[Rfam]
The record is a 91-nucleotide sequence from Pseudohongiella nitratireducens, which matches "Aggregatibacter sRNA 22" in Rfam. Rfam classes the family as a small RNA. The literature on the family includes a 2017 paper in DNA Res by Oogai et al., "Small RNA repertoires and their intraspecies variation in Aggregatibacter actinomycetemcomitans".
RNA sequence: AGGCGAGUAAAAAACGCACCGCGUUUUAGACGGCCGCCAGGCCGCCCCGAAGGGGUGAGCAAUCCGCCAAUGCGGAUUGUGAAUCAAUCUC
Numbered sequence: 001a002g003g004c005g006a007g008u009a010a011a012a013a014a015c016g017c018a019c020c021g022c023g024u025u026u027u028a029g030a031c032g033g034c035c036g037c038c039a040g041g042c043c044g045c046c047c048c049g050a051a052g053g054g055g056u057g058a059g060c061a062a063u064c065c066g067c068c069a070a071u072g073c074g075g076a077u078u079g080u081g082a083a084u085c086a087a088u089c090u091c
Base pairs, nucleotide, nucleotide: 011027012026013025014024015023016022017021032043033042034041044056045055046054047053048052059080060079061078062077063076064075065074066073067072